The record is a 102-nucleotide RNA from Romboutsia lituseburensis, which matches "Guanidine-I riboswitch aptamer" in Rfam. It scores 90 bits against the family's covariance model. Rfam links the family to the GO term regulation of gene expression. Rfam's curators write: This family represents a conserved RNA structure found upstream of the ykkC and yxkD genes in Bacillus subtilis and related genes in other bacteria. The organism belongs to Romboutsia lituseburensis, within Bacteria. On this family, see Trachman RJ 3rd and Ferre-D'Amare, RNA 2021: "An uncommon [K(+)(Mg(2+))2] metal ion triad imparts stability and selectivity to the Guanidine-I riboswitch".
RNA sequence: AUAAAAGUUUUAUAGGGUUCCGUAGUUGAAAUUUUAACUGGUCUGGUCCGAGAUAAAACGCACAGUAUUCUGUGUUCACGGAAGGACAAAAGCCUGGGAGAU
Numbered sequence: 001a002u003a004a005a006a007g008u009u010u011u012a013u014a015g016g017g018u019u020c021c022g023u024a025g026u027u028g029a030a031a032u033u034u035u036a037a038c039u040g041g042u043c044u045g046g047u048c049c050g051a052g053a054u055a056a057a058a059c060g061c062a063c064a065g066u067a068u069u070c071u072g073u074g075u076u077c078a079c080g081g082a083a084g085g086a087c088a089a090a091a092g093c094c095u096g097g098g099a100g101a102u
Stems, first nucleotide, its partner, number of pairs: 007059006015049002020046002022043001023040006060075006077097001079100001083095003